RNA sequence: ACUGACAGGAUGUCAGGGGAGUUAAGCAGAAGCGAGUUUUUCCACUGAAAAACUCGUAAUUCAAAAAUGUACACGGAAGUACAUUUUUGAAUAUUU
Numbered sequence: 001a002c003u004g005a006c007a008g009g010a011u012g013u014c015a016g017g018g019g020a021g022u023u024a025a026g027c028a029g030a031a032g033c034g035a036g037u038u039u040u041u042c043c044a045c046u047g048a049a050a051a052a053c054u055c056g057u058a059a060u061u062c063a064a065a066a067a068u069g070u071a072c073a074c075g076g077a078a079g080u081a082c083a084u085u086u087u088u089g090a091a092u093a094u095u096u
Stems, first nucleotide, its partner, number of pairs: 002016005033056010059092014
TD-2 RNA: a 96-nucleotide RNA from Treponema vincentii. Pairs were carried over by alignment from the consensus structure, which is taken from published work. Rfam 15.1 lists 310 matches to the family in 11 species.